[Rfam]
Nucleotides: 089
Base pairs, nucleotide, nucleotide: 006084007083010080011079012078013077020033021032022031023030035069036068037067038065039064042063043062044061048056
Number, partner (000 for none) and nucleotide at each position: 001000u002000a003000c004000a005000u006084u007083g008000u009000u010080g011079c012078g013077g014000a015000a016000g017000a018000g019000a020033c021032u022031g023030a024000u025000u026000a027000a028000a029000u030023u031022c032021a033020g034000c035069g036068c037067c038065g039064a040000a041000g042063g043062a044061g045000c046000a047000a048056c049000c050000g051000c052000c053000c054000u055000c056048g057000g058000a059000a060000a061044c062043u063042c064039u065038c066000a067037g068036g069035c070000a071000a072000a073000a074000g075000g076000a077013c078012c079011g080010c081000u082000u083007c084006a085000a086000u087000u088000a089000a
Glycine riboswitch aptamer: an 89-nucleotide RNA sequence. Gene Ontology term of the family: glycine biosynthetic process. About the family: This family represents the bacterial glycine riboswitch.